[Rfam]
RNA sequence: CAUACACGCCCUACGGGCGUUUCCUCCCUAAACUUGGGCCGUGCCAUGCGCACGGCCUUUUUUUUGGAAAUUC
Numbered sequence: 001c002a003u004a005c006a007c008g009c010c011c012u013a014c015g016g017g018c019g020u021u022u023c024c025u026c027c028c029u030a031a032a033c034u035u036g037g038g039c040c041g042u043g044c045c046a047u048g049c050g051c052a053c054g055g056c057c058u059u060u061u062u063u064u065u066g067g068a069a070a071u072u073c
Stems, first nucleotide, its partner, number of pairs: 008018004036058009
RNA: Makes More Granules Regulator RNA (mmgR)